This 73-nucleotide RNA sequence from Pseudokineococcus marinus belongs to the Rfam family "tRNA". Taxonomically the source falls in Pseudokineococcus (Bacteria, Actinomycetes, Kineosporiales, Kineosporiaceae). A search with the family's covariance model found it, with a score of 63 bits.
RNA sequence: GUGGGUGUAGCUCAGCUGGUAGAGCACCGCGUUGUGGUCGCGGUGGCCGCGGGUUCGAGCCCCGUCACUCACC
Number, nucleotide and partner (000 for none) at each position: 001g072002u071003g070004g069005g068006u067007g066008u000009a000010g025011c024012u023013c022014a000015g000016c000017u000018g000019g000020u000021a000022g013023a012024g011025c010026a000027c043028c042029g041030c040031g039032u000033u000034g000035u000036g000037g000038u000039c031040g030041c029042g028043g027044u000045g000046g000047c000048c000049g065050c064051g063052g062053g061054u000055u000056c000057g000058a000059g000060c000061c053062c052063c051064g050065u049066c007067a006068c005069u004070c003071a002072c001073c000